[Rfam]
RNA sequence: AGGAGGACAACCACAGUGGGCGGCAGCCAGCUCUGGAGCCCUGGUUUCAGCUCCCGAAGUAACUACGGAGCUCUCCGUCUGCAACGGUCUGUAUACUCUGGGGCAGG
Number, nucleotide and partner (000 for none) at each position: 001a000002g099003g098004a097005g096006g000007a000008c091009a090010a000011c087012c086013a000014c000015a000016g000017u000018g000019g079020g078021c077022g076023g075024c000025a074026g073027c000028c000029a072030g071031c070032u069033c068034u067035g066036g000037a064038g000039c000040c000041c059042u058043g000044g000045u000046u000047u000048c000049a000050g000051c000052u000053c000054c000055c000056g000057a000058a042059g041060u000061a000062a000063c000064u037065a000066c035067g034068g033069a032070g031071c030072u029073c026074u025075c023076c022077g021078u020079c019080u000081g000082c000083a000084a000085c000086g012087g011088u000089c000090u009091g008092u000093a000094u000095a000096c005097u004098c003099u002100g000101g000102g000103g000104c000105a000106g000107g000